[Rfam]
RNA sequence: AUUUUCACUGCUGCACCGAGGGCACACACAUCUUCCGUGGGACUUGGAAUUUCUGGAGAAUUGCCUUUGUAAAAAGCUGGCAUAAUUUCUUUAAAUUCCAUCUCUUAGUUUCCCAUUUUGUUGUUUCAAACAGAUAUCAAGAAACC
Numbered sequence: 001a002u003u004u005u006c007a008c009u010g011c012u013g014c015a016c017c018g019a020g021g022g023c024a025c026a027c028a029c030a031u032c033u034u035c036c037g038u039g040g041g042a043c044u045u046g047g048a049a050u051u052u053c054u055g056g057a058g059a060a061u062u063g064c065c066u067u068u069g070u071a072a073a074a075a076g077c078u079g080g081c082a083u084a085a086u087u088u089c090u091u092u093a094a095a096u097u098c099c100a101u102c103u104c105u106u107a108g109u110u111u112c113c114c115a116u117u118u119u120g121u122u123g124u125u126u127c128a129a130a131c132a133g134a135u136a137u138c139a140a141g142a143a144a145c146c
Base pairs, nucleotide, nucleotide: 006080010077011076012075017069018068019067020066021065022064023063024062026061039054040053041052042051086144087143088142089141090140091139096134099133
RNA: ODC internal ribosome entry site (IRES)
Organism: Monodon monoceros